Description
The record is a 354-nucleotide sequence from Keratinibaculum paraultunense, which matches "transfer-messenger RNA" in Rfam. It is annotated as a non-coding RNA gene. Bacterial tmRNA, also known as 10Sa RNA or SsrA, is named for its dual tRNA and mRNA-like properties. Pairs were carried over by alignment from the consensus structure, which is taken from published work.

[Rfam]
RNA sequence: GGGGGCGAAAUGGUUUCGACGGGAAUAUUGAAGCAGGAGUAGCGAGUCGUUGUUGCCAACUCAACGUAAAAAAGUGGCAUUAAGAAUAAACGCAAACGAAGAUUACGCAUUUGCUGCUUAAUUAAAGCAGCACGUCCUACCCAAGAGUCCCACGGCUUGGGAUAGGGCGCCAACAUUAGUGGGGAACCGAGCCUUACAAAGCUUUGAGUAAGGAACGGAAUUUUAUGAAGCUACCGAGGCUAGAAUCCUGUCAGUAGGAGUCUAGCUGAGGGAAUGUUAAAAUACUGACUGCACUCGGAGAAGCUCCUGUGGAUAUAUUUUCGGACGUGGGUUCGAUUCCCACCGCCUCCACCA
Numbered sequence: 001g002g003g004g005g006c007g008a009a010a011u012g013g014u015u016u017c018g019a020c021g022g023g024a025a026u027a028u029u030g031a032a033g034c035a036g037g038a039g040u041a042g043c044g045a046g047u048c049g050u051u052g053u054u055g056c057c058a059a060c061u062c063a064a065c066g067u068a069a070a071a072a073a074g075u076g077g078c079a080u081u082a083a084g085a086a087u088a089a090a091c092g093c094a095a096a097c098g099a100a101g102a103u104u105a106c107g108c109a110u111u112u113g114c115u116g117c118u119u120a121a122u123u124a125a126a127g128c129a130g131c132a133c134g135u136c137c138u139a140c141c142c143a144a145g146a147g148u149c150c151c152a153c154g155g156c157u158u159g160g161g162a163u164a165g166g167g168c169g170c171c172a173a174c175a176u177u178a179g180u181g182g183g184g185a186a187c188c189g190a191g192c193c194u195u196a197c198a199a200a201g202c203u204u205u206g207a208g209u210a211a212g213g214a215a216c217g218g219a220a221u222u223u224u225a226u227g228a229a230g231c232u233a234c235c236g237a238g239g240c241u242a243g244a245a246u247c248c249u250g251u252c253a254g255u256a257g258g259a260g261u262c263u264a265g266c267u268g269a270g271g272g273a274a275u276g277u278u279a280a281a282a283u284a285c286u287g288a289c290u291g292c293a294c295u296c297g298g299a300g301a302a303g304c305u306c307c308u309g310u311g312g313a314u315a316u317a318u319u320u321u322c323g324g325a326c327g328u329g330g331g332u333u334c335g336a337u338u339c340c341c342a343c344c345g346c347c348u349c350c351a352c353c354a
Stems, first nucleotide, its partner, number of pairs: 001350007020323009033310008043297005048066005054079005112132006133169006140161006148184006187218003192213004200232006234271002238267006246259003250289004254283002327343005